[Rfam]
Shown here is a 155-nucleotide RNA sequence from Commensalibacter melissae, a member of the family "FMN riboswitch aptamer (RFN element)". A search with the family's covariance model found it, with a score of 105 bits. The RFN element is a highly conserved domain that is found frequently in the 5'-untranslated regions of prokaryotic mRNAs that encode for flavin mononucleotide (FMN) biosynthesis and transport proteins. Its family is annotated with FMN binding in the Gene Ontology. The organism belongs to Commensalibacter, within Bacteria.
RNA sequence: CGACGUUCUUGGGGCGAGGUGUAAUUCCUCACCGACGGUAAGAGAAUAUCUUGUUCUUAAGCCCGUGAGCGCCUGUAUUGUAAUAAUGCAGGGUCAAGCAGAUUUUGGUGCGAUUCCAAAGCCGACGGUUACAGUCCGGAUGAGAAAGAACGAUA
Numbered sequence: 001c002g003a004c005g006u007u008c009u010u011g012g013g014g015c016g017a018g019g020u021g022u023a024a025u026u027c028c029u030c031a032c033c034g035a036c037g038g039u040a041a042g043a044g045a046a047u048a049u050c051u052u053g054u055u056c057u058u059a060a061g062c063c064c065g066u067g068a069g070c071g072c073c074u075g076u077a078u079u080g081u082a083a084u085a086a087u088g089c090a091g092g093g094u095c096a097a098g099c100a101g102a103u104u105u106u107g108g109u110g111c112g113a114u115u116c117c118a119a120a121g122c123c124g125a126c127g128g129u130u131a132c133a134g135u136c137c138g139g140a141u142g143a144g145a146a147a148g149a150a151c152g153a154u155a
Base pairs, nucleotide, nucleotide: 004152005151006150007149008148009147010146017029018028019027031135032134033124034123035066036065037064038063061122062121069099070098104120105119106118107117108116126138127137128136